[Rfam]
RNA sequence: AAACGAAUCCAGCAAAUUCACACACGAGUCGACACGUUGCUCCAGGGUGCCUGCGGUUGUUGAAAACCGCACAUAGGUUGGUGCAAUCGGAUUCGUGGAGGUCUAAC
Numbered sequence: 001a002a003a004c005g006a007a008u009c010c011a012g013c014a015a016a017u018u019c020a021c022a023c024a025c026g027a028g029u030c031g032a033c034a035c036g037u038u039g040c041u042c043c044a045g046g047g048u049g050c051c052u053g054c055g056g057u058u059g060u061u062g063a064a065a066a067c068c069g070c071a072c073a074u075a076g077g078u079u080g081g082u083g084c085a086a087u088c089g090g091a092u093u094c095g096u097g098g099a100g101g102u103c104u105a106a107c
Base pairs, nucleotide, nucleotide: 023097024096025095026094027093028092029091030090036087037086038085039084040083042081043080044079049078050077051076052075053074